[Rfam]
This 205-nucleotide RNA sequence from Anguilla anguilla belongs to the Rfam family "Small nucleolar RNA SNORA74". About the family: U19 belongs to the H/ACA class of snoRNAs. snoRNAs bind a number of proteins (including dyskerin, Gar1p and Nop10p in the case of the H/ACA class) to form snoRNP complexes. This class are thought to guide the sites of modification of uridines to pseudouridines by forming direct base pairing interactions with substrate RNAs. Targets may include ribosomal and spliceosomal RNAs but the exact functions of many snoRNAs, including U19, are not confirmed. Co-precipitation of U19 snoRNA with RNase MRP RNA suggests that U19 may be involved in pre-rRNA processing. Rfam 15.1 lists 1,348 matches to the family in 628 species. The family's consensus secondary structure was predicted with PFOLD. For this family Rfam cites "The family of box ACA small nucleolar RNAs is defined by an evolutionarily conserved secondary structure and ubiquitous sequence elements essential for RNA accumulation" (Ganot et al., Genes Dev, 1997). Rfam links the family to the GO terms nucleolus and RNA processing. Rfam classes the family as an H/ACA-box small nucleolar RNA. Its Rfam clan is "SNORA74 clan".
RNA sequence: CCCAGCGGCAGUCAGCUGCGCAGGCCUGCCCCGUGCCUGAGCCAGUGUUACUCUGCUGGGAGAUGAAGGUGCCGUCGCUGUGGCCGGGCGCUGGCAGACACUGUUUUAGUGGCUGCCGAUGCCAGGCCGCGACGGUGCUGCGCCCCUCUGAGAGUGGGCUGUGCCCCACACAUUGGGGGCAGCCCUAGUCUGGGGGGCGAACAUU
Numbered sequence: 001c002c003c004a005g006c007g008g009c010a011g012u013c014a015g016c017u018g019c020g021c022a023g024g025c026c027u028g029c030c031c032c033g034u035g036c037c038u039g040a041g042c043c044a045g046u047g048u049u050a051c052u053c054u055g056c057u058g059g060g061a062g063a064u065g066a067a068g069g070u071g072c073c074g075u076c077g078c079u080g081u082g083g084c085c086g087g088g089c090g091c092u093g094g095c096a097g098a099c100a101c102u103g104u105u106u107u108a109g110u111g112g113c114u115g116c117c118g119a120u121g122c123c124a125g126g127c128c129g130c131g132a133c134g135g136u137g138c139u140g141c142g143c144c145c146c147u148c149u150g151a152g153a154g155u156g157g158g159c160u161g162u163g164c165c166c167c168a169c170a171c172a173u174u175g176g177g178g179g180c181a182g183c184c185c186u187a188g189u190c191u192g193g194g195g196g197g198c199g200a201a202c203a204u205u
Base pairs, nucleotide, nucleotide: 001060002059003058004057005056006055007054008053011051012050015046016045017044018043021039022038023037024036025035069138070137071136072135073134074133075132076131077130082128083127084126085125088122089121090120092118093117095115096114097113099111100110101109102108141199142198143197144196145195146194147193156185157184158183160181161180162179164177165176166175
Dot-bracket structure: ((((((((..((..((((..(((((.........)))))...))))...)).))))))))........(((((((((....((((..(((.((.(((.((((.....)))).))).)).)))..)))).)))))))))..(((((((........(((.(((.(((........))).))).))).......)))))))......